[Rfam]
RNA sequence: UGCCUUGCCACCAGGGAGCGGCGUCCUUAUAUACCGACGUGCCGGAGGGGCUUGCUCCUUGGCUAUGGCGAUAAACGGCACGUGGAAUAAGUGUAGUGGACCCGGGGGCAGUACCCGGCGUCUCCACCAGAAACCUCCCCGUCACGACCCUUCGGGGCAGGGGAGCAUGGGGACGAAACAGGCUCGACACGCAUGGUAAAGACCUGCCUUUUGCCCGGCAUUGUACCGCCGUCAUCGGGCUAACUUACAAGUGCCAACGAUAACUCUGAGGUGCUCGCUGUCGCUGCAUAAGUGACAAGCGCGGUUCGGGAGGGCACCGGGCAACAGAAGCCCUCCCACU
Numbered sequence: 001u002g003c004c005u006u007g008c009c010a011c012c013a014g015g016g017a018g019c020g021g022c023g024u025c026c027u028u029a030u031a032u033a034c035c036g037a038c039g040u041g042c043c044g045g046a047g048g049g050g051c052u053u054g055c056u057c058c059u060u061g062g063c064u065a066u067g068g069c070g071a072u073a074a075a076c077g078g079c080a081c082g083u084g085g086a087a088u089a090a091g092u093g094u095a096g097u098g099g100a101c102c103c104g105g106g107g108g109c110a111g112u113a114c115c116c117g118g119c120g121u122c123u124c125c126a127c128c129a130g131a132a133a134c135c136u137c138c139c140c141g142u143c144a145c146g147a148c149c150c151u152u153c154g155g156g157g158c159a160g161g162g163g164a165g166c167a168u169g170g171g172g173a174c175g176a177a178a179c180a181g182g183c184u185c186g187a188c189a190c191g192c193a194u195g196g197u198a199a200a201g202a203c204c205u206g207c208c209u210u211u212u213g214c215c216c217g218g219c220a221u222u223g224u225a226c227c228g229c230c231g232u233c234a235u236c237g238g239g240c241u242a243a244c245u246u247a248c249a250a251g252u253g254c255c256a257a258c259g260a261u262a263a264c265u266c267u268g269a270g271g272u273g274c275u276c277g278c279u280g281u282c283g284c285u286g287c288a289u290a291a292g293u294g295a296c297a298a299g300c301g302c303g304g305u306u307c308g309g310g311a312g313g314g315c316a317c318c319g320g321g322c323a324a325c326a327g328a329a330g331c332c333c334u335c336c337c338a339c340u
Stems, first nucleotide, its partner, number of pairs: 041063005067215005077208004082203002092193003096190003102118005119175007216231004221242001223240001226238002302319004309336006
Rfam assigns this 340-nucleotide RNA sequence from Gluconacetobacter takamatsuzukensis to the family "Alphaproteobacteria transfer-messenger RNA". Taxonomically the source falls in Gluconacetobacter (Bacteria, Pseudomonadati, Pseudomonadota, Acetobacteraceae). Rfam classes the family as a non-coding RNA gene. A search with the family's covariance model found it, with a score of 237 bits. Bacterial tmRNA, also known as 10Sa RNA or SsrA, is named for its dual tRNA and mRNA-like properties. For this family Rfam cites "Phylogenetic analysis of tmRNA secondary structure" (Williams and Bartel, RNA, 1996).